Background
This 71-nucleotide RNA sequence belongs to the Rfam family "DUF3800-IX RNA". Pairs were carried over by alignment from the consensus structure, which is taken from published work. The sequence is in the family's curated seed alignment. Rfam describes the family as follows. Actinobacteria, Firmicutes (1 example), Nitrospirae, Proteobacteria, Verrucomicrobia (1 example). The family's RNA type in Rfam is small RNA.

RNA sequence: UUCCCUCUGGUGAAGAGUCGCCGAGUUGGCGGCCUGUCCGGAUCGAUCCCGGACUAACCAGGGGGUUUUUU
Dot-bracket structure: ..(((((((((.....((((((.....))))))..(((((.........)))))..)))))))))......